A member of the RNA family "Alphaproteobacterial ar14" from Rhizobium sp. Root1212, 122 nucleotides long. The source organism's lineage runs through Bacteria, Pseudomonadota, Alphaproteobacteria, Hyphomicrobiales and Rhizobium. Smr14C2 was renamed NfeR1 (Nodule Formation Efficiency RNA) highly expressed in salt stress and during the symbiotic interaction on legume roots. The family's RNA type in Rfam is small RNA. Its family is annotated with biological process involved in symbiotic interaction in the Gene Ontology.
RNA sequence: UCCUGUCGCGGCGAUUCACUCCUCCUCCCGGAAUGCUGCGACGGGAUCGAUGACCAUCCUCCUCCCGGUUGUCGAUAAAAUCGAAAGCCUGCCGCCUCCUCCUCCCGCGGCAGGCUUUCUGC
Numbered sequence: 001u002c003c004u005g006u007c008g009c010g011g012c013g014a015u016u017c018a019c020u021c022c023u024c025c026u027c028c029c030g031g032a033a034u035g036c037u038g039c040g041a042c043g044g045g046a047u048c049g050a051u052g053a054c055c056a057u058c059c060u061c062c063u064c065c066c067g068g069u070u071g072u073c074g075a076u077a078a079a080a081u082c083g084a085a086a087g088c089c090u091g092c093c094g095c096c097u098c099c100u101c102c103u104c105c106c107g108c109g110g111c112a113g114g115c116u117u118u119c120u121g122c
Stems, first nucleotide, its partner, number of pairs: 007040003011036003015033003046076009085117011